The family of this 128-nucleotide RNA sequence from Gossypium laxum is "mir-393 microRNA precursor family".
NCBI's taxonomy places the organism under Eukaryota, Streptophytina, malvids, Malvales, Gossypium.
[Rfam]
RNA sequence: GGUGGAGAGCUCCAAAGGGAUCGCAUUGAUCUAAUGUUGAUAUGGAUUGUUGAAUCAAGUGUCAUGGUAUGGUCAUUUGUUGAUGCAGUUUGCUCAUUGGAUCAUGCGAUCCCUUCGAAAUUUUCUAU
Numbered sequence: 001g002g003u004g005g006a007g008a009g010c011u012c013c014a015a016a017g018g019g020a021u022c023g024c025a026u027u028g029a030u031c032u033a034a035u036g037u038u039g040a041u042a043u044g045g046a047u048u049g050u051u052g053a054a055u056c057a058a059g060u061g062u063c064a065u066g067g068u069a070u071g072g073u074c075a076u077u078u079g080u081u082g083a084u085g086c087a088g089u090u091u092g093c094u095c096a097u098u099g100g101a102u103c104a105u106g107c108g109a110u111c112c113c114u115u116c117g118a119a120a121u122u123u124u125c126u127a128u
Stems, first nucleotide, its partner, number of pairs: 002128005008122002011119001013117001015115007023107004028103005036095001
The literature on the family includes a 2012 paper in J Plant Physiol by Kruszka et al., "Role of microRNAs and other sRNAs of plants in their changing environments".